Small nucleolar RNA snoR136: a 144-nucleotide RNA from Dorcoceras hygrometricum.
Rfam classes the family as an H/ACA-box small nucleolar RNA.
RNA sequence: UUUGCUUUACCUUUGAUGAAAAUAUAUGUUGCACUGUUUAUAUAUUUCAAGUGUGACAUUAUUUCGAGUGAAGCUAAAACCUGUUCCUCUCGCUAUCCGGUGCAAUAGUUUUAUAAUGCAUUUGGACGUUGGGGAACGAAAUAU
Numbered sequence: 001u002u003u004g005c006u007u008u009a010c011c012u013u014u015g016a017u018g019a020a021a022a023u024a025u026a027u028g029u030u031g032c033a034c035u036g037u038u039u040a041u042a043u044a045u046u047u048c049a050a051g052u053g054u055g056a057c058a059u060u061a062u063u064u065c066g067a068g069u070g071a072a073g074c075u076a077a078a079a080c081c082u083g084u085u086c087c088u089c090u091c092g093c094u095a096u097c098c099g100g101u102g103c104a105a106u107a108g109u110u111u112u113a114u115a116a117u118g119c120a121u122u123u124g125g126a127c128g129u130u131g132g133g134g135a136a137c138g139a140a141a142u143a144u
Stems, first nucleotide, its partner, number of pairs: 001078002004074002008070002011068003016064001020060001026059008037050002083137007091128002096126005106115002